RNA sequence: AUACUUACCAGUCAAGGAGGACAUAAUGAUCAAGAGGGUGGUCUUUCUAGGGCUAGACACAUCCAUUGUACUCCCGAUGUGCUGACCCUUGUGAUUUCCCCAAUGUGGGAAACUCAACUACAGAAUUUGUGAUAGUGGGCGACUGUGUUGCCACUCUUCCCAG
Numbered sequence: 001a002u003a004c005u006u007a008c009c010a011g012u013c014a015a016g017g018a019g020g021a022c023a024u025a026a027u028g029a030u031c032a033a034g035a036g037g038g039u040g041g042u043c044u045u046u047c048u049a050g051g052g053c054u055a056g057a058c059a060c061a062u063c064c065a066u067u068g069u070a071c072u073c074c075c076g077a078u079g080u081g082c083u084g085a086c087c088c089u090u091g092u093g094a095u096u097u098c099c100c101c102a103a104u105g106u107g108g109g110a111a112a113c114u115c116a117a118c119u120a121c122a123g124a125a126u127u128u129g130u131g132a133u134a135g136u137g138g139g140c141g142a143c144u145g146u147g148u149u150g151c152c153a154c155u156c157u158u159c160c161c162a163g
Stems, first nucleotide, its partner, number of pairs: 014119001016048005023042002026039002049090004056083001058081001060079004092116003095112003099108002136162004142157001145154003
Dot-bracket structure: .............(.(((((..((.((..........)).)).)))))((((...(.(.((((............)))).).)...)))).((((((.((......)).))).)))..)................((((..(..(((....)))..).)))).